[Rfam]
A member of the RNA family "Small nucleolar RNA SNORD59" from Rattus norvegicus, 72 nucleotides long. Rfam classes the family as a C/D-box small nucleolar RNA. NCBI's taxonomy places the organism under Eukaryota, Opisthokonta, Amniota, Muridae, Rattus. A reference for the family is Galardi et al. (2002), "Purified box C/D snoRNPs are able to reproduce site-specific 2'-O-methylation of target RNA in vitro", Mol Cell Biol. Its Rfam clan is "SNORD59 clan". Rfam links the family to the GO terms nucleolus and RNA processing.

RNA sequence: CCUUCCUUGAUGAUUAGCUUCUGACUUUCGUUCUUCUGAAUUUGCUGAAGCCAGAUGCCAUUCCUGAGAAGG
Numbered sequence: 001c002c003u004u005c006c007u008u009g010a011u012g013a014u015u016a017g018c019u020u021c022u023g024a025c026u027u028u029c030g031u032u033c034u035u036c037u038g039a040a041u042u043u044g045c046u047g048a049a050g051c052c053a054g055a056u057g058c059c060a061u062u063c064c065u066g067a068g069a070a071g072g
Stems, first nucleotide, its partner, number of pairs: 001072003005068001